This 80-nucleotide RNA sequence from Cairina moschata belongs to the Rfam family "mir-1791 microRNA precursor family". The source organism's lineage runs through Eukaryota, Vertebrata, Gnathostomata, Saurischia and Cairina. Rfam links the family to the GO terms RISC complex and miRNA-mediated post-transcriptional gene silencing.
RNA sequence: AGCACUGUGUUGCACUACAUCAGUCAUGCCAUGUUAUGAAACCUAACGUGAUGUGACAGAUGCAGGCUGACAUGAUGUGU
Numbered sequence: 001a002g003c004a005c006u007g008u009g010u011u012g013c014a015c016u017a018c019a020u021c022a023g024u025c026a027u028g029c030c031a032u033g034u035u036a037u038g039a040a041a042c043c044u045a046a047c048g049u050g051a052u053g054u055g056a057c058a059g060a061u062g063c064a065g066g067c068u069g070a071c072a073u074g075a076u077g078u079g080u
Base pairs, nucleotide, nucleotide: 002080003079004078005077006074007073008072009071010070011069012068015065016064018062019061020060021059023057024056025055026054027053028052030050032048033047034046035045036044
The base pairs follow the family's consensus structure, which was predicted with RNAalifold. A search with the family's covariance model found it, with a score of 76 bits.